[Rfam]
RNA sequence: AAGCGCACGCAGGGGGGUCCCACCUAGGGGACUGAGAGGCUGACGGUGCAUCACGCACGGCGACGCGACCCUUUGAACCUGACCCAGUUGAUACUGGCGGAGGAAGCUAGGGCAUCGCAAAC
Numbered sequence: 001a002a003g004c005g006c007a008c009g010c011a012g013g014g015g016g017g018u019c020c021c022a023c024c025u026a027g028g029g030g031a032c033u034g035a036g037a038g039g040c041u042g043a044c045g046g047u048g049c050a051u052c053a054c055g056c057a058c059g060g061c062g063a064c065g066c067g068a069c070c071c072u073u074u075g076a077a078c079c080u081g082a083c084c085c086a087g088u089u090g091a092u093a094c095u096g097g098c099g100g101a102g103g104a105a106g107c108u109a110g111g112g113c114a115u116c117g118c119a120a121a122c
Stems, first nucleotide, its partner, number of pairs: 006110001009107002011072004016066001017032005078103003084097004